[Rfam]
RNA sequence: ACGUGCCGGUGAUGAUUCACGCAAUUGGUGAAUUCUGGAUGAAUGUUCUGGUGCACAGGCAUGGUGAUAUGCACUUCCAAAGCGUCCAUCUGAGGCACUC
Number, nucleotide and partner (000 for none) at each position: 001a000002c000003g098004u097005g096006c095007c094008g000009g000010u000011g000012a000013u000014g000015a000016u000017u000018c000019a000020c000021g000022c000023a000024a000025u000026u000027g000028g000029u000030g000031a000032a000033u000034u000035c000036u000037g000038g000039a000040u000041g000042a000043a000044u000045g000046u000047u000048c000049u000050g000051g000052u000053g000054c000055a000056c000057a000058g000059g000060c000061a000062u000063g000064g000065u000066g000067a000068u000069a000070u000071g000072c000073a000074c000075u000076u000077c000078c000079a000080a000081a000082g000083c000084g000085u000086c000087c000088a000089u000090c000091u000092g000093a000094g007095g006096c005097a004098c003099u000100c000

A member of the RNA family "Small nucleolar RNA Z188" from Zea mays, 100 nucleotides long. NCBI's taxonomy places the organism under Eukaryota, Streptophyta, Tracheophyta, commelinids, Zea. Pairs were carried over by alignment from the consensus structure, which was predicted with PFOLD. The literature on the family includes a 2003 paper in Nucleic Acids Res by Chen et al., "The high diversity of snoRNAs in plants: identification and comparative study of 120 snoRNA genes from Oryza sativa".